Notes: A member of the RNA family "Alphaproteobacterial ar15" from Tianweitania populi, 111 nucleotides long. Rfam links the family to the GO term protein binding. Its Rfam clan is "suhB sRNA clan". Taxonomically the source falls in Tianweitania (Bacteria, Pseudomonadati, Alphaproteobacteria, Phyllobacteriaceae). On this family, see del Val et al., RNA Biol 2012: "A survey of sRNA families in alpha-proteobacteria". Rfam 15.1 lists 316 matches to the family in 177 species. It is annotated as a small RNA.
[Rfam]
RNA sequence: AUCUCCUGAGCGCGUUCUCCUCCCAUUAGCGCUCGAGAGUGUUCCCCUCUGGAGGUCAGCCUUAAUUGGCACUCCAAUAACUCAGCCGGGUCGUUUCGAUCCGGCUUUUUU
Numbered sequence: 001a002u003c004u005c006c007u008g009a010g011c012g013c014g015u016u017c018u019c020c021u022c023c024c025a026u027u028a029g030c031g032c033u034c035g036a037g038a039g040u041g042u043u044c045c046c047c048u049c050u051g052g053a054g055g056u057c058a059g060c061c062u063u064a065a066u067u068g069g070c071a072c073u074c075c076a077a078u079a080a081c082u083c084a085g086c087c088g089g090g091u092c093g094u095u096u097c098g099a100u101c102c103g104g105c106u107u108u109u110u111u
Stems, first nucleotide, its partner, number of pairs: 001040001003039003007035007050076005084106006091099003